BsrG: a 253-nucleotide RNA sequence from Brevibacillus laterosporus. The family's consensus secondary structure was predicted with WAR. Taxonomically the source falls in Brevibacillus laterosporus (Bacteria, Bacillati, Bacilli, Paenibacillaceae). For this family Rfam cites "Novel small RNA-encoding genes in the intergenic regions of Bacillus subtilis" (Saito et al., Gene, 2008). From the family's description: bsrE, bsrG and bsrH pair through intermolecular interactions with antisense sRNAs. They form type I toxin/antitoxin system that includes an mRNA encoding for a short, toxic peptide (bsrE, bsrG and bsrH) and an antitoxin that is comprised of an antisense RNA. bsrG encodes a 39-amino-acid toxin, and the 180 nucleotide antisense sRNA called SR4 acts as the antitoxin (they overlap by 123 nucleotides).

RNA sequence: UAUAAUAGAUAGCUCCUCAAGGGUGGUCGGCUCACUCCUAUUCCAAAUGGAAGGGGGUGAAGCUAUGACGGUAUUUCAAGCAUUGACACUCAUGAUUUCUUUUGCAACUUUGGUCGUGUUAAUACUGUCUUUCCAUAAAAAGAAGUAGAUCACCCUUGAGUUUAGCACCUCAGUGAUCUACUUCACCUGUAAAUGAGCUACCCCUUUGAAGGGACAGUCUAUUAUAUGACCGUGGGUGUUGGCAGCACCUGCG
Numbered sequence: 001u002a003u004a005a006u007a008g009a010u011a012g013c014u015c016c017u018c019a020a021g022g023g024u025g026g027u028c029g030g031c032u033c034a035c036u037c038c039u040a041u042u043c044c045a046a047a048u049g050g051a052a053g054g055g056g057g058u059g060a061a062g063c064u065a066u067g068a069c070g071g072u073a074u075u076u077c078a079a080g081c082a083u084u085g086a087c088a089c090u091c092a093u094g095a096u097u098u099c100u101u102u103u104g105c106a107a108c109u110u111u112g113g114u115c116g117u118g119u120u121a122a123u124a125c126u127g128u129c130u131u132u133c134c135a136u137a138a139a140a141a142g143a144a145g146u147a148g149a150u151c152a153c154c155c156u157u158g159a160g161u162u163u164a165g166c167a168c169c170u171c172a173g174u175g176a177u178c179u180a181c182u183u184c185a186c187c188u189g190u191a192a193a194u195g196a197g198c199u200a201c202c203c204c205u206u207u208g209a210a211g212g213g214a215c216a217g218u219c220u221a222u223u224a225u226a227u228g229a230c231c232g233u234g235g236g237u238g239u240u241g242g243c244a245g246c247a248c249c250u251g252c253g
Stems, first nucleotide, its partner, number of pairs: 001226005007220003010200006016160008025150001027148001032060008067129007081094002106119001170185001172183001202213003231253010